[Rfam]
Nucleotides: 075
Base pairs, nucleotide, nucleotide: 001074002073005070006069007068008067011064012063013062015060016059017058018057019056020055021054022053023052025050026049027048028047030045032043033042034041035040
Number, partner (000 for none) and nucleotide at each position: 001074g002073g003000c004000a005070c006069a007068a008067a009000c010000u011064u012063g013062a014000a015060g016059u017058a018057g019056a020055g021054u022053g023052g024000u025050u026049u027048a028047g029000u030045a031000g032043g033042g034041u035040c036000a037000g038000c039000c040035g041034a042033u043032c044000c045030u046000c047028u048027u049026a050025a051000u052023c053022u054021a055020c056019u057018c058017u059016a060015c061000c062013u063012c064011a065000a066000a067008u068007u069006u070005g071000g072000a073002c074001c075000a
Rfam assigns this 75-nucleotide RNA sequence from Haemonchus placei to the family "mir-5928 microRNA precursor family". Gene Ontology terms of the family: RISC complex and miRNA-mediated post-transcriptional gene silencing. Rfam 15.1 lists 1,672 matches to the family in 12 species.